[Rfam]
RNA sequence: UUGACUGGCUGAAUUAGUGAUUGGCUAGUCAUCAGUAAAAACCGCUCAAUAAAGAGCUUAUUUGGAGAAACAUUAUGUCACUAAGUGCUGAUCAAAAAGCUGAAAUCGUAAAAGAACAUGCUCGUGGUGAA
Numbered sequence: 001u002u003g004a005c006u007g008g009c010u011g012a013a014u015u016a017g018u019g020a021u022u023g024g025c026u027a028g029u030c031a032u033c034a035g036u037a038a039a040a041a042c043c044g045c046u047c048a049a050u051a052a053a054g055a056g057c058u059u060a061u062u063u064g065g066a067g068a069a070a071c072a073u074u075a076u077g078u079c080a081c082u083a084a085g086u087g088c089u090g091a092u093c094a095a096a097a098a099g100c101u102g103a104a105a106u107c108g109u110a111a112a113a114g115a116a117c118a119u120g121c122u123c124g125u126g127g128u129g130a131a
Base pairs, nucleotide, nucleotide: 007026008025009024010023011022012021061085062084063083064082065081067079

Shown here is a 131-nucleotide RNA sequence from a Kangiellaceae bacterium, a member of the family "Ribosomal S15 leader". Pairs were carried over by alignment from the consensus structure, which is taken from published work. From the family's description: The E. coli Ribosomal S15 gene 5' UTR can form two alternative structures. One that is a series of three hairpins, The other includes a pseudoknot. For this family Rfam cites "Pseudoknot and translational control in the expression of the S15 ribosomal protein" (Benard et al., Biochimie, 1996). The organism belongs to Kangiellaceae, within Bacteria. A search with the family's covariance model found it, with a score of 79 bits.